[Rfam]
RNA sequence: GCCACAUCUAGCCCGACGGGGCGAACACCGCAAACCCUAUGCGGCUGGUGUGGCUUCUUAUUUAAGGG
Numbered sequence: 001g002c003c004a005c006a007u008c009u010a011g012c013c014c015g016a017c018g019g020g021g022c023g024a025a026c027a028c029c030g031c032a033a034a035c036c037c038u039a040u041g042c043g044g045c046u047g048g049u050g051u052g053g054c055u056u057c058u059u060a061u062u063u064a065a066g067g068g
Base pairs, nucleotide, nucleotide: 001054002053003052004051005050006049007048008047011022012021013020014019028044029043030042031041035068036067037066038065
RNA: int-alpA RNA
Organism: Methylotenera sp.